[Rfam]
RNA sequence: AAUUUGCGUGAGGGAUUGGAGUGGAAAUCCUUUUGUUUUUUUCUUUAAAAAACAAAAGAUUGCAACAGAAAGCCCGACCCUUG
Numbered sequence: 001a002a003u004u005u006g007c008g009u010g011a012g013g014g015a016u017u018g019g020a021g022u023g024g025a026a027a028u029c030c031u032u033u034u035g036u037u038u039u040u041u042u043c044u045u046u047a048a049a050a051a052a053c054a055a056a057a058g059a060u061u062g063c064a065a066c067a068g069a070a071a072g073c074c075c076g077a078c079c080c081u082u083g
Base pairs, nucleotide, nucleotide: 012075013074014073016071017070021066022065026061027060028059029058032056033055034054035053036052037051038050039049040048041047
Shown here is an 83-nucleotide RNA from Flavobacterium geliluteum, a member of the family "Flavo-1 RNA". It scores 64 bits against the family's covariance model. The organism belongs to Flavobacterium, within Bacteria. The family's RNA type in Rfam is small RNA.